Plastid-rpl16 group II-D1 intron: a 47-nucleotide RNA sequence from Asparagus officinalis. Pairs were carried over by alignment from the consensus structure, which was predicted with LocARNA. The match comes from Rfam's covariance-model search (48 bits). About the family: Plastid-rpl16 is a non-coding RNA (ncRNA) recognised in plastids. It was recognised in and intronic region of a ribosome rpl16 gene. Rfam links the family to the GO term Group II intron splicing.
[Rfam]
RNA sequence: AAGAGCCCCGGGUUAAUAGAAACCGAGGAGAUUGACUUAGGAACGAA
Numbered sequence: 001a002a003g004a005g006c007c008c009c010g011g012g013u014u015a016a017u018a019g020a021a022a023c024c025g026a027g028g029a030g031a032u033u034g035a036c037u038u039a040g041g042a043a044c045g046a047a
Stems, first nucleotide, its partner, number of pairs: 007041002010038008